[Rfam]
Annotation: Small nucleolar SNORD12/SNORD106: a 90-nucleotide sequence from Lophotis ruficrista. The source organism's lineage runs through Eukaryota, Opisthokonta, Eumetazoa, Theropoda and Lophotis. Rfam classes the family as a C/D-box small nucleolar RNA.

RNA sequence: GCUGGUGUAAGUGAUGACAAUUUUUUUCCCCAUCAGAGCGACAGUGUUGAUUUCUCGCUAUUGAAGCCAGGCCAUGUCUGAUGCACCAGC
Number, nucleotide and partner (000 for none) at each position: 001g090002c089003u088004g087005g086006u085007g084008u083009a082010a000011g000012u000013g000014a000015u000016g000017a000018c000019a000020a000021u000022u000023u000024u000025u000026u000027u000028c000029c000030c000031c000032a000033u000034c000035a000036g000037a000038g000039c000040g000041a000042c000043a000044g000045u000046g000047u000048u000049g000050a000051u000052u000053u000054c000055u000056c000057g000058c000059u000060a000061u000062u000063g000064a000065a000066g000067c000068c000069a000070g000071g000072c000073c000074a000075u000076g000077u000078c000079u000080g000081a000082u009083g008084c007085a006086c005087c004088a003089g002090c001
Its Rfam clan is "SNORD12 clan".